Rfam assigns this 148-nucleotide RNA sequence from Actinomadura craniellae to the family "c-di-AMP riboswitch aptamer (ydaO/yuaA leader)". This family represents a conserved RNA structure found upstream of the ydaO and yuaA genes in Bacillus subtilis and related genes in other bacteria. Pairs were carried over by alignment from the consensus structure.

[Rfam]
RNA sequence: GCGGGCCGAUCGCCGAAUCUCCGCGGCGCCCCCUCGGGCCCGCGGGAGCCGGGGACCCACUGUCUCUGGGGUGAAUCCGCCGCGUGCGGUAGGGCGACUCCUGGCCCGAACCCGUCAGCUAACCCGGUAGGCGCCCUAGGGAGAUGCU
Number, nucleotide and partner (000 for none) at each position: 001g000002c000003g000004g000005g000006c000007c000008g000009a000010u000011c133012g132013c131014c130015g000016a000017a000018u047019c046020u045021c000022c000023g000024c000025g000026g000027c000028g000029c000030c000031c000032c000033c000034u000035c000036g000037g000038g000039c000040c000041c000042g000043c000044g000045g020046g019047a018048g128049c127050c126051g125052g124053g123054g000055a000056c000057c000058c068059a067060c000061u000062g000063u000064c000065u000066c000067u059068g058069g113070g112071g111072u000073g000074a000075a000076u000077c089078c088079g087080c086081c000082g000083c000084g000085u000086g080087c079088g078089g077090u000091a000092g107093g106094g105095c104096g000097a000098c000099u000100c000101c000102u000103g000104g095105c094106c093107c092108g000109a000110a000111c071112c070113c069114g000115u000116c000117a000118g000119c000120u000121a000122a000123c053124c052125c051126g050127g049128u048129a000130g014131g013132c012133g011134c000135c000136c000137u000138a000139g000140g000141g000142a000143g000144a000145u000146g000147c000148u000